Rfam assigns this 114-nucleotide RNA sequence from Macaca nemestrina to the family "Y RNA". It scores 40 bits against the family's covariance model. Rfam classes the family as a non-coding RNA gene. Taxonomically the source falls in Macaca (Eukaryota, Opisthokonta, Deuterostomia, Vertebrata). Y RNAs are components of the Ro ribonucleoprotein particle (Ro RNP), in association with Ro60 and La proteins. The Y RNAs and Ro60 and La proteins are well conserved, but the function of the Ro RNP is not known. In humans the RNA component can be one of four small RNAs -- hY1, hY3, hY4 and hY5.
[Rfam]
RNA sequence: GGCUGGUCUGAAAGGUAGUGAGUUAUCUCACUUGAUUGAUUCACUGUUAUAGAUCAAACUUCUGUUUCUACUGUUUCCCGCUCUUCUCACUACUGUAGCUAUGACUAGUCUUUG
Numbered sequence: 001g002g003c004u005g006g007u008c009u010g011a012a013a014g015g016u017a018g019u020g021a022g023u024u025a026u027c028u029c030a031c032u033u034g035a036u037u038g039a040u041u042c043a044c045u046g047u048u049a050u051a052g053a054u055c056a057a058a059c060u061u062c063u064g065u066u067u068c069u070a071c072u073g074u075u076u077c078c079c080g081c082u083c084u085u086c087u088c089a090c091u092a093c094u095g096u097a098g099c100u101a102u103g104a105c106u107a108g109u110c111u112u113u114g
Stems, first nucleotide, its partner, number of pairs: 001110008010102001012100001015096002017091006043074002046071002
Dot-bracket structure: ((((((((.(.(..((((((((....................((.((......................)).))...........))))))...))...).)))))))))....